[Rfam]
RNA: FMN riboswitch aptamer (RFN element)
Organism: Johnsonella ignava
RNA sequence: AUAGUUCUUCGGGGCGGGGUGCAAGUCCCCACCGGCAGUAAAGUCUGCGAGCUGAAACUGGCUGAUCCGGUGUAAUUCCGGAACCGACGGUAUAGUCCGGAUGAGAGAAGGGUAUU
Numbered sequence: 001a002u003a004g005u006u007c008u009u010c011g012g013g014g015c016g017g018g019g020u021g022c023a024a025g026u027c028c029c030c031a032c033c034g035g036c037a038g039u040a041a042a043g044u045c046u047g048c049g050a051g052c053u054g055a056a057a058c059u060g061g062c063u064g065a066u067c068c069g070g071u072g073u074a075a076u077u078c079c080g081g082a083a084c085c086g087a088c089g090g091u092a093u094a095g096u097c098c099g100g101a102u103g104a105g106a107g108a109a110g111g112g113u114a115u116u
Stems, first nucleotide, its partner, number of pairs: 004113007017029003031096002033086002035048004043084002051062003066082005088099003